[Rfam]
RNA sequence: GGUUGAGUAAUGAUGAUGCAUUUAUUUGGACUAGAGUUUCUGAUCUCUGGCAAUUCAUGUGUCAGUGAUUGAAGACUAACCCUUGGCUGUCUGAUCUCAAUC
Numbered sequence: 001g002g003u004u005g006a007g008u009a010a011u012g013a014u015g016a017u018g019c020a021u022u023u024a025u026u027u028g029g030a031c032u033a034g035a036g037u038u039u040c041u042g043a044u045c046u047c048u049g050g051c052a053a054u055u056c057a058u059g060u061g062u063c064a065g066u067g068a069u070u071g072a073a074g075a076c077u078a079a080c081c082c083u084u085g086g087c088u089g090u091c092u093g094a095u096c097u098c099a100a101u102c
Stems, first nucleotide, its partner, number of pairs: 001102007037074004044067001045065002
RNA: Small nucleolar RNA Z157/R69/R10
Organism: Zingiber officinale